[Rfam]
RNA: MIR398 microRNA precursor family
RNA sequence: GUUUAUCUCAGAGGAGUGAAUUUGAGAACACAAGGCUGGUUUGUAAUUCAUAUUAUCAUUUGUUGGUAUUUGGUGUGAAUCUACUUUGUGUUCUCAGGUCACCCCUUUGAGCCAACC
Dot-bracket structure: ......((..((((.((((....((((((((((((................................................))))))))))))...)))).))))..))......